[Rfam]
RNA: mir-8364 microRNA precursor family
Organism: Pristionchus pacificus
RNA sequence: UCUUCAUUUCCCAUGCUCUCUUGACGAUCAGAGAGGGCGAGAGAGCAUGGAACAUGAAGAGA
Numbered sequence: 001u002c003u004u005c006a007u008u009u010c011c012c013a014u015g016c017u018c019u020c021u022u023g024a025c026g027a028u029c030a031g032a033g034a035g036g037g038c039g040a041g042a043g044a045g046c047a048u049g050g051a052a053c054a055u056g057a058a059g060a061g062a
Base pairs, nucleotide, nucleotide: 001060002059003058004057005056006055007054012049013048014047015046016045017044019042020041021040022039